About this RNA
This 59-nucleotide RNA sequence from Lachnospiraceae bacterium G41 belongs to the Rfam family "pemK RNA". The family's RNA type in Rfam is cis-regulatory element. The family's consensus secondary structure is taken from published work. The match comes from Rfam's covariance-model search (40 bits). The organism belongs to Lachnospiraceae, within Bacteria.
[Rfam]
RNA sequence: AUAAUGAUACUUCCGGGAUGCGACCCGGCCAAUUAGAGAAGGUGGUGCAAGUCCAAUGU
Numbered sequence: 001a002u003a004a005u006g007a008u009a010c011u012u013c014c015g016g017g018a019u020g021c022g023a024c025c026c027g028g029c030c031a032a033u034u035a036g037a038g039a040a041g042g043u044g045g046u047g048c049a050a051g052u053c054c055a056a057u058g059u
Stems, first nucleotide, its partner, number of pairs: 012056001013028004029042002043055003